Shown here is a 193-nucleotide RNA from Dichanthelium oligosanthes, a member of the family "MIR1435 microRNA precursor family". Pairs were carried over by alignment from the consensus structure, which was predicted with RNAalifold. Lineage of the source: Eukaryota > Embryophyta > Magnoliopsida > Poaceae > Dichanthelium.
RNA sequence: UUGGUUUGUCCUAAGUCAAACUUCUCCGACCAAGUUUAUAGAAAAAUAUAACAACAAUUAUACUACCAAAUAUAUACACUAUCAAAGUAUAUUCUAUGGUGGAUUCAAUAAAACAAAUUUGGUAUUAUAGGUGUUGUUAGAUUUUUCUAUAAACUUGGUCGAAGUUGAUAAGUUGAACUUAGGACAAACCAAA
Dot-bracket structure: ....(((((.((((((..(((((.((............((((((((..(((.((((.(((((...((((((.............................................))))))...))))).)))).)))..)))))))).................)).)))))..)))))).))))).....